Shown here is a 375-nucleotide sequence from Exophiala sideris, a member of the family "Nuclear RNase P". The literature on the family includes a 1998 paper in Annu Rev Biochem by Frank and Pace, "Ribonuclease P: unity and diversity in a tRNA processing ribozyme". From the family's description: Ribonuclease P (RNase P) is a ubiquitous endoribonuclease, found in archaea, bacteria and eukarya as well as chloroplasts and mitochondria. Its best characterised activity is the generation of mature 5'-ends of tRNAs by cleaving the 5'-leader elements of precursor-tRNAs. Cellular RNase Ps are ribonucleoproteins. RNA from bacterial RNase Ps retains its catalytic activity in the absence of the protein subunit, i.e. it is a ribozyme. Its Rfam clan is "RNaseP clan". The source organism's lineage runs through Eukaryota, Fungi, Dikarya, Eurotiomycetes and Exophiala. It scores 38 bits against the family's covariance model. The family's consensus secondary structure is taken from published work. Rfam classes the family as a ribozyme.
RNA sequence: UCCGCUGCGUUCUCUGCUACAAACAACGAACCUCCUGCUUCACUGCAGUCGAGUUACGUUUUCUUUCUUGCAGAUGAGAAAUUCGGAGUAAUCUUCAAAAUCUCGCCUCUGUCUCGUGUCAACAUGACCAGGACAGAGCGCUGCCCGCGAGGGUCCGGCACGUUUUCGUGCUCGCAAAUGGCAUCAGAAACUUACAGGGCUUCAGCUUGAACUCGUUCAUCUGGAGGAUUCCCUAUGGAAGAGCCUUUGCGAAGAUAGUCUGGCGUGUCUCCACGGUGAGAACGCACUUACUUUAGUGCAAUCGCAGCGGAAAUCUGCAGUCUCUGGUCCUAUGAACCGAGAAAGCGUUUUCAAUUCGAUUCCGAUUACUCUGGG
Numbered sequence: 001u002c003c004g005c006u007g008c009g010u011u012c013u014c015u016g017c018u019a020c021a022a023a024c025a026a027c028g029a030a031c032c033u034c035c036u037g038c039u040u041c042a043c044u045g046c047a048g049u050c051g052a053g054u055u056a057c058g059u060u061u062u063c064u065u066u067c068u069u070g071c072a073g074a075u076g077a078g079a080a081a082u083u084c085g086g087a088g089u090a091a092u093c094u095u096c097a098a099a100a101u102c103u104c105g106c107c108u109c110u111g112u113c114u115c116g117u118g119u120c121a122a123c124a125u126g127a128c129c130a131g132g133a134c135a136g137a138g139c140g141c142u143g144c145c146c147g148c149g150a151g152g153g154u155c156c157g158g159c160a161c162g163u164u165u166u167c168g169u170g171c172u173c174g175c176a177a178a179u180g181g182c183a184u185c186a187g188a189a190a191c192u193u194a195c196a197g198g199g200c201u202u203c204a205g206c207u208u209g210a211a212c213u214c215g216u217u218c219a220u221c222u223g224g225a226g227g228a229u230u231c232c233c234u235a236u237g238g239a240a241g242a243g244c245c246u247u248u249g250c251g252a253a254g255a256u257a258g259u260c261u262g263g264c265g266u267g268u269c270u271c272c273a274c275g276g277u278g279a280g281a282a283c284g285c286a287c288u289u290a291c292u293u294u295a296g297u298g299c300a301a302u303c304g305c306a307g308c309g310g311a312a313a314u315c316u317g318c319a320g321u322c323u324c325u326g327g328u329c330c331u332a333u334g335a336a337c338c339g340a341g342a343a344a345g346c347g348u349u350u351u352c353a354a355u356u357c358g359a360u361u362c363c364g365a366u367u368a369c370u371c372u373g374g375g
Stems, first nucleotide, its partner, number of pairs: 001309001003307001006304002013074004026059003029055003084364005093254004143154004157172006176247002180245003196234003310352004315347001